[Rfam]
RNA: L31-Coriobacteria ribosomal protein leader
RNA sequence: GUUCUGGUCGGAAACCAGAGCCUUGAAGAAGGAG
Numbered sequence: 001g002u003u004c005u006g007g008u009c010g011g012a013a014a015c016c017a018g019a020g021c022c023u024u025g026a027a028g029a030a031g032g033a034g
Base pairs, nucleotide, nucleotide: 001021002020003019004018005017006016007015008014